A member of the RNA family "Histone 3' UTR stem-loop" from Labeo rohita, 46 nucleotides long. Rfam describes the family as follows. The mRNAs of metazoan histone genes lack a poly-A tail. 3' end processing occurs at a site between a highly conserved stem-loop (modelled by this family) and a purine rich region around 20 nts downstream (the histone downstream element, or HDE). The stem-loop is bound by a 31 kDa stem-loop binding protein (SLBP - also termed the histone hairpin binding protein, or HBP). Together with U7 snRNA binding of the HDE, SLBP binding nucleate s the formation of the processing complex. The organism belongs to Labeo, within Eukaryota. By type it is a cis-regulatory element.
[Rfam]
RNA sequence: CCAACGGCUCUUUUAAGAGCCACCCAUAUUCUCGUCUAAAGAGCUU
Numbered sequence: 001c002c003a004a005c006g007g008c009u010c011u012u013u014u015a016a017g018a019g020c021c022a023c024c025c026a027u028a029u030u031c032u033c034g035u036c037u038a039a040a041g042a043g044c045u046u
Stems, first nucleotide, its partner, number of pairs: 006021006